RNA sequence: GCUGGGAGUGGUGGCGUACUCCUGUAAUCCAGCUACUUGGAGGCUAGGUGUUGAGGAUGAUUUGAGGUCGGGAGUUCUGGUGCACUGUGUCCCACGUUGACUGGGCGUCCGCACUAAGCUGGGCAUCAAUAUGGGCACUCUGGGGGAGCUUGGGGUGGCCAGGUUGGCUAAGGAGGGGCGGACCGGGCCAGAGGGGAAACUCAGCAGCCAGAAGUCCCCGUGUGGAGCAGUAGUGGGAUCGCGCAUGGGAGUGGGAGCUGUGUAGUAGCCCGACCAAUAAAGUCAGACCACAUCUUU
Numbered sequence: 001g002c003u004g005g006g007a008g009u010g011g012u013g014g015c016g017u018a019c020u021c022c023u024g025u026a027a028u029c030c031a032g033c034u035a036c037u038u039g040g041a042g043g044c045u046a047g048g049u050g051u052u053g054a055g056g057a058u059g060a061u062u063u064g065a066g067g068u069c070g071g072g073a074g075u076u077c078u079g080g081u082g083c084a085c086u087g088u089g090u091c092c093c094a095c096g097u098u099g100a101c102u103g104g105g106c107g108u109c110c111g112c113a114c115u116a117a118g119c120u121g122g123g124c125a126u127c128a129a130u131a132u133g134g135g136c137a138c139u140c141u142g143g144g145g146g147a148g149c150u151u152g153g154g155g156u157g158g159c160c161a162g163g164u165u166g167g168c169u170a171a172g173g174a175g176g177g178g179c180g181g182a183c184c185g186g187g188c189c190a191g192a193g194g195g196g197a198a199a200c201u202c203a204g205c206a207g208c209c210a211g212a213a214g215u216c217c218c219c220g221u222g223u224g225g226a227g228c229a230g231u232a233g234u235g236g237g238a239u240c241g242c243g244c245a246u247g248g249g250a251g252u253g254g255g256a257g258c259u260g261u262g263u264a265g266u267a268g269c270c271c272g273a274c275c276a277a278u279a280a281a282g283u284c285a286g287a288c289c290a291c292a293u294c295u296u297u
Stems, first nucleotide, its partner, number of pairs: 001044003004023007028041003046295006053289001058285006066275007077268003081264005087258002091255005097249001101248003105244004109237002112235005118228003123223004127166004132161003136157009168172001175218005184211001186209003193202003
Dot-bracket structure: ((((((((((......)))))))....(((........)))))).((((((.(....((((((..(((((((....(((.(((((.((..(((((.(...(((.((((((.(((((.(((..((((((((.(((.(((((((((....))))))))).))).)))).(...)..(((((....(.(((....(((....)))....))).)..))))).))))..)))..)))))))...)))).)))).))))).)).))))).))))))))))....))))))...)))))))..

About this RNA:
This 297-nucleotide sequence from Zootermopsis nevadensis belongs to the Rfam family "Metazoan signal recognition particle RNA". By type it is a non-coding RNA gene. The base pairs follow the family's consensus structure, which is taken from published work. A search with the family's covariance model found it, with a score of 249 bits. The source organism's lineage runs through Eukaryota, Mandibulata, Insecta, Dicondylia and Zootermopsis. The signal recognition particle (SRP) is a universally conserved ribonucleoprotein.